[Rfam]
RNA sequence: AUAACGAGGCUGGGGUGCCGAAAGGCUGAGAAAGAGCCCAUGCUCUUAACCCAUUGAACCUGAUAUAGUUAGUACUAUCGUAGGGAGCCUGAAUUUUUUAUAA
Numbered sequence: 001a002u003a004a005c006g007a008g009g010c011u012g013g014g015g016u017g018c019c020g021a022a023a024g025g026c027u028g029a030g031a032a033a034g035a036g037c038c039c040a041u042g043c044u045c046u047u048a049a050c051c052c053a054u055u056g057a058a059c060c061u062g063a064u065a066u067a068g069u070u071a072g073u074a075c076u077a078u079c080g081u082a083g084g085g086a087g088c089c090u091g092a093a094u095u096u097u098u099u100a101u102a103a
Stems, first nucleotide, its partner, number of pairs: 007090004011053004017026003033046005059084004065078004
RNA: TPP riboswitch aptamer (THI element)